[Rfam]
RNA sequence: GCCUUCUUGGCUCAGUUGGUAGAGCGUCUGCCUAGUAAGCAGAAGGUCGUCAGUUCGACUCUGGCAGAAGGCA
Number, nucleotide and partner (000 for none) at each position: 001g072002c071003c070004u069005u068006c067007u066008u000009g000010g025011c024012u023013c022014a000015g000016u000017u000018g000019g000020u000021a000022g013023a012024g011025c010026g000027u043028c042029u041030g040031c039032c000033u000034a000035g000036u000037a000038a000039g031040c030041a029042g028043a027044a000045g000046g000047u000048c000049g065050u064051c063052a062053g061054u000055u000056c000057g000058a000059c000060u000061c053062u052063g051064g050065c049066a007067g006068a005069a004070g003071g002072c001073a000

Description: Shown here is a 73-nucleotide RNA from Coemansia biformis, a member of the family "tRNA". The family's RNA type in Rfam is transfer RNA. A search with the family's covariance model found it, with a score of 69 bits. The organism belongs to Coemansia, within Eukaryota.